[Rfam]
RNA sequence: CUGGAAUGAUGUGACUUAGCCAAAUCAGACAUUCAUGUGCUCCAUGAGACACCAAACAUUAUCUUUAAAGCUUGCUCUCAUUGCAAAACUUAAGCGUGUGGGUGGGCUUUGUUCGAUGUUGGUGACCCUCAUGUUGAAGCGCAUUUCUCUGACGAUUAACAAAGAGAAUGGUUGUUUCCUGACCAGA
Number, nucleotide and partner (000 for none) at each position: 001c186002u185003g184004g183005a000006a000007u000008g000009a000010u000011g000012u000013g000014a000015c000016u000017u000018a000019g000020c000021c000022a000023a000024a000025u000026c000027a000028g000029a000030c000031a000032u000033u000034c000035a000036u000037g000038u000039g000040c000041u000042c000043c000044a000045u000046g000047a000048g000049a000050c000051a000052c000053c000054a000055a000056a000057c000058a000059u000060u000061a000062u000063c000064u000065u000066u000067a000068a000069a000070g000071c000072u000073u000074g000075c000076u000077c000078u000079c000080a000081u000082u000083g000084c000085a000086a000087a000088a000089c000090u000091u000092a000093a000094g000095c000096g000097u000098g000099u000100g000101g000102g000103u000104g000105g000106g000107c000108u000109u000110u000111g000112u000113u000114c000115g000116a000117u000118g000119u000120u000121g000122g000123u000124g000125a000126c000127c000128c000129u000130c000131a000132u000133g000134u000135u000136g000137a000138a000139g000140c000141g000142c000143a000144u000145u000146u000147c000148u000149c000150u000151g000152a000153c000154g000155a000156u000157u000158a000159a000160c000161a000162a000163a000164g000165a000166g000167a000168a000169u000170g000171g000172u000173u000174g000175u000176u000177u000178c000179c000180u000181g000182a000183c004184c003185a002186g001187a000
RNA: small nucleolar RNA snoR127